[Rfam]
RNA sequence: UUGUCCUGGCCUAUGCUUUCUCUGCUCGCCUGUGCUCAGUUCUAACAGGGGCCUCUGGCAGGACACACAGCAAUCUCUCCCUCUCAGUUUAGGAGGGCCGUCCUGAGAAUAGGUCUGGCUCUUAAAGGCACGAGAGGACAAU
Numbered sequence: 001u002u003g004u005c006c007u008g009g010c011c012u013a014u015g016c017u018u019u020c021u022c023u024g025c026u027c028g029c030c031u032g033u034g035c036u037c038a039g040u041u042c043u044a045a046c047a048g049g050g051g052c053c054u055c056u057g058g059c060a061g062g063a064c065a066c067a068c069a070g071c072a073a074u075c076u077c078u079c080c081c082u083c084u085c086a087g088u089u090u091a092g093g094a095g096g097g098c099c100g101u102c103c104u105g106a107g108a109a110u111a112g113g114u115c116u117g118g119c120u121c122u123u124a125a126a127g128g129c130a131c132g133a134g135a136g137g138a139c140a141a142u
Base pairs, nucleotide, nucleotide: 002065003064004063005062006061007060008059010058011057024054029049030048031047032046033045080137081136082135083134084133085132087129088128089127090126093123094122095121096120097119098118099117100115102113103112104111105110

Shown here is a 142-nucleotide RNA from Equus caballus, a member of the family "Small Cajal body specific RNA 11". About the family: scaRNAs are a specific class of small nuclear RNAs which localise to the Cajal bodies and guide the modification of RNA polymerase II transcribed spliceosomal RNAs U1, U2, U4, U5 and U12. Pairs were carried over by alignment from the consensus structure, which was predicted with RNAalifold. For this family Rfam cites "Cajal body-specific small nuclear RNAs: a novel class of 2'-O-methylation and pseudouridylation guide RNAs" (Darzacq et al., EMBO J, 2002).